The family of this 138-nucleotide sequence from Caldanaerobius fijiensis is "FMN riboswitch aptamer (RFN element)". Pairs were carried over by alignment from the consensus structure, which is taken from published work. The source organism's lineage runs through Bacteria, Bacillati, Clostridia, Thermoanaerobacteraceae and Caldanaerobius fijiensis.

RNA sequence: GUUGUCCUUCAGGGCAGGGUGAAAUUCCCGACCGGCGGUAUGCAAUACGGUUGUAUUGCGAGCCCGCGAGCCACCAUAGGUGGUAGAUCUGGUGAGAGGCCAGAGCCGACAGUAAAGUCUGGAUGGGAGAAGGAAGAU
Number, nucleotide and partner (000 for none) at each position: 001g000002u000003u136004g000005u134006c133007c132008u131009u130010c129011a000012g000013g000014g000015c000016a000017g029018g028019g027020u000021g000022a000023a000024a000025u000026u000027c019028c018029c017030g000031a118032c117033c108034g107035g067036c066037g065038g064039u000040a000041u000042g000043c000044a000045a000046u000047a000048c000049g000050g000051u000052u000053g000054u000055a000056u000057u000058g000059c000060g000061a000062g106063c105064c038065c037066g036067c035068g000069a000070g084071c083072c082073a000074c000075c000076a000077u000078a000079g000080g000081u000082g072083g071084u070085a000086g000087a000088u104089c103090u102091g101092g100093u000094g000095a000096g000097a000098g000099g000100c092101c091102a090103g089104a088105g063106c062107c034108g033109a000110c121111a120112g119113u000114a000115a000116a000117g032118u031119c112120u111121g110122g000123a000124u000125g000126g000127g000128a000129g010130a009131a008132g007133g006134a005135a000136g003137a000138u000